[Rfam]
RNA sequence: GAGGGAUGUCGCCGGAGAACGCAAGGGUGUUGUACCAGCAUGGACAAUUAGUCCAUGUGGCAGUUGCGCCGGGAAUUCCUCAUUUU
Numbered sequence: 001g002a003g004g005g006a007u008g009u010c011g012c013c014g015g016a017g018a019a020c021g022c023a024a025g026g027g028u029g030u031u032g033u034a035c036c037a038g039c040a041u042g043g044a045c046a047a048u049u050a051g052u053c054c055a056u057g058u059g060g061c062a063g064u065u066g067c068g069c070c071g072g073g074a075a076u077u078c079c080u081c082a083u084u085u086u
Stems, first nucleotide, its partner, number of pairs: 001081007010073001012072004020068005026036003039057007
RNA: DUF3800-VII RNA